RNA sequence: AACCAAGGCACUCAACGCCACACACGUAUCGGCACCGUCUUCGGGGUGCCGCGACCUGCCCACCACUUAACCGGGCAGCCGCGGUCGAAACCGGGGAUACGUGGAGGUCCCAAC
Numbered sequence: 001a002a003c004c005a006a007g008g009c010a011c012u013c014a015a016c017g018c019c020a021c022a023c024a025c026g027u028a029u030c031g032g033c034a035c036c037g038u039c040u041u042c043g044g045g046g047u048g049c050c051g052c053g054a055c056c057u058g059c060c061c062a063c064c065a066c067u068u069a070a071c072c073g074g075g076c077a078g079c080c081g082c083g084g085u086c087g088a089a090a091c092c093g094g095g096g097a098u099a100c101g102u103g104g105a106g107g108u109c110c111c112a113a114c
Stems, first nucleotide, its partner, number of pairs: 023103008035094003040089004048085005

t44 RNA: a 114-nucleotide sequence from Dyella tabacisoli. It scores 62 bits against the family's covariance model.